[Rfam]
RNA sequence: UCGACCAGAGGGGAUGGAGUUCCCCGCAAUCGCCGCGAGGCUGAUGACUCCUGCCGGACU
Numbered sequence: 001u002c003g004a005c006c007a008g009a010g011g012g013g014a015u016g017g018a019g020u021u022c023c024c025c026g027c028a029a030u031c032g033c034c035g036c037g038a039g040g041c042u043g044a045u046g047a048c049u050c051c052u053g054c055c056g057g058a059c060u
Stems, first nucleotide, its partner, number of pairs: 010025004016051006032041003

Rfam assigns this 60-nucleotide RNA from Lichenibacterium minor to the family "Fluoride riboswitch aptamer (crcB RNA motif)". A search with the family's covariance model found it, with a score of 53 bits. Rfam links the family to the GO terms response to fluoride and positive regulation of gene expression.